Annotation:
A member of the RNA family "Small nucleolar RNA snoR100" from Camphora micrantha, 115 nucleotides long. A reference for the family is Marker et al. (2002), "Experimental RNomics: identification of 140 candidates for small non-messenger RNAs in the plant Arabidopsis thaliana", Curr Biol. Taxonomically the source falls in Camphora (Eukaryota, Tracheophyta, Magnoliidae, Lauraceae).
RNA sequence: AAAUGAAGGUAGCAUGGUAAGGUGCACAGAGAUUAAUCUAUAAAAGGGUCCUCAUGUCUGCUCGCAUUGAUGCCUUUGGGCCUUGAUUUUGUGGGCCUGGAUUUGACUUACACAC
Numbered sequence: 001a002a003a004u005g006a007a008g009g010u011a012g013c014a015u016g017g018u019a020a021g022g023u024g025c026a027c028a029g030a031g032a033u034u035a036a037u038c039u040a041u042a043a044a045a046g047g048g049u050c051c052u053c054a055u056g057u058c059u060g061c062u063c064g065c066a067u068u069g070a071u072g073c074c075u076u077u078g079g080g081c082c083u084u085g086a087u088u089u090u091g092u093g094g095g096c097c098u099g100g101a102u103u104u105g106a107c108u109u110a111c112a113c114a115c
Stems, first nucleotide, its partner, number of pairs: 012025004046098005056087003060081003
Annotation: It is annotated as an H/ACA-box small nucleolar RNA.